[Rfam]
The family of this 74-nucleotide RNA sequence from Orycteropus afer is "U1A polyadenylation inhibition element (PIE)". The family has 39 seed sequences and 510 matches in Rfam 15.1. The family's consensus secondary structure is taken from published work. The literature on the family includes a 2004 paper in Biochemistry by Clerte and Hall, "Global and Local Dynamics of the U1A Polyadenylation Inhibition Element (PIE) RNA and PIE RNA-U1A Complexes". This family represents the U1A polyadenylation inhibition element (PIE). Rfam classes the family as a cis-regulatory element.
RNA sequence: CCACACAGCAUUGUACUCAGAGUCUGUCUCCAGACACUGCACCCGGCACUGUUAGACUGGAAUUAAUUUUUUUG
Dot-bracket structure: ....((((........((.(.(((((....))))).......).))..))))......................